This 57-nucleotide RNA sequence from Microbacterium sediminis belongs to the Rfam family "msiK RNA".
Nucleotides: 057
Base pairs, nucleotide, nucleotide: 008049009048011047012046013045014044026043027042028041029040030039031038
Number, partner (000 for none) and nucleotide at each position: 001000c002000g003000c004000c005000g006000u007000u008049c009048c010000a011047u012046u013045c014044a015000c016000u017000a018000c019000g020000g021000a022000u023000c024000g025000u026043c027042c028041g029040g030039c031038a032000c033000g034000u035000a036000c037000c038031u039030g040029c041028c042027g043026g044014u045013g046012a047011a048009g049008g050000a051000g052000a053000a054000a055000c056000u057000g
NCBI's taxonomy places the organism under Bacteria, Actinomycetota, Micrococcales, Microbacteriaceae, Microbacterium.